Rfam assigns this 301-nucleotide RNA from Carnegiea gigantea to the family "Plant signal recognition particle RNA". By type it is a non-coding RNA gene. Its family is annotated with SRP-dependent cotranslational protein targeting to membrane, signal sequence recognition and signal recognition particle, endoplasmic reticulum targeting in the Gene Ontology.
RNA sequence: GCGUAGCUGGGUAGCAUUAGCUUGUAACUCAAACGAGGGCAUCAAGGUGAUGGGACUUGACUUAAUUUCACAUGGUAGGGCUGCAGGUUGCGGUCUGCUGGCUUGCCUAUUCCGAGCUGGGAAUUGGGCUGGAUAGGUUAGGCGAAGGCCUGGUCUAAAUAGCCCCUGAAUAGGAGGGCAUUGUGUCAGGCUGACUUCACAGAGUAGCGAAUACCUCCCUCCCUCGGCAGUGGAAGCAUAACAAGUUGGGGCAUCCUCCGUCCAUCAUUACCCUGUGGUUUUUACAAGUAACAUUUCCUAG
Numbered sequence: 001g002c003g004u005a006g007c008u009g010g011g012u013a014g015c016a017u018u019a020g021c022u023u024g025u026a027a028c029u030c031a032a033a034c035g036a037g038g039g040c041a042u043c044a045a046g047g048u049g050a051u052g053g054g055a056c057u058u059g060a061c062u063u064a065a066u067u068u069c070a071c072a073u074g075g076u077a078g079g080g081c082u083g084c085a086g087g088u089u090g091c092g093g094u095c096u097g098c099u100g101g102c103u104u105g106c107c108u109a110u111u112c113c114g115a116g117c118u119g120g121g122a123a124u125u126g127g128g129c130u131g132g133a134u135a136g137g138u139u140a141g142g143c144g145a146a147g148g149c150c151u152g153g154u155c156u157a158a159a160u161a162g163c164c165c166c167u168g169a170a171u172a173g174g175a176g177g178g179c180a181u182u183g184u185g186u187c188a189g190g191c192u193g194a195c196u197u198c199a200c201a202g203a204g205u206a207g208c209g210a211a212u213a214c215c216u217c218c219c220u221c222c223c224u225c226g227g228c229a230g231u232g233g234a235a236g237c238a239u240a241a242c243a244a245g246u247u248g249g250g251g252c253a254u255c256c257u258c259c260g261u262c263c264a265u266c267a268u269u270a271c272c273c274u275g276u277g278g279u280u281u282u283u284a285c286a287a288g289u290a291a292c293a294u295u296u297c298c299u300a301g
Stems, first nucleotide, its partner, number of pairs: 001040002005022006028037003043301001045299003049295004055289003059285001064281002068278005074272004078263004083258001086255001089253002098249008108236001110235005116228006126165006134157010173218005182211001184209003191202003